[Rfam]
RNA sequence: AGUUGCAAGUUCAAAGCCAUGGCAGAAGCACUCAUUGCGUAGCUGUUGGAUUCCACCGAAUCUGUGAAUUCUGCU
Numbered sequence: 001a002g003u004u005g006c007a008a009g010u011u012c013a014a015a016g017c018c019a020u021g022g023c024a025g026a027a028g029c030a031c032u033c034a035u036u037g038c039g040u041a042g043c044u045g046u047u048g049g050a051u052u053c054c055a056c057c058g059a060a061u062c063u064g065u066g067a068a069u070u071c072u073g074c075u
Stems, first nucleotide, its partner, number of pairs: 016043002021075007028040002047064007
Dot-bracket structure: ...............[[...(((((((((.........)).]]...(((((((....)))))))....)))))))
Annotation
The family of this 75-nucleotide RNA sequence from Crocodylus porosus is "Mammalian CPEB3 ribozyme". The match comes from Rfam's covariance-model search (36 bits). NCBI's taxonomy places the organism under Eukaryota, Opisthokonta, Sarcopterygii, Tetrapoda, Crocodylus.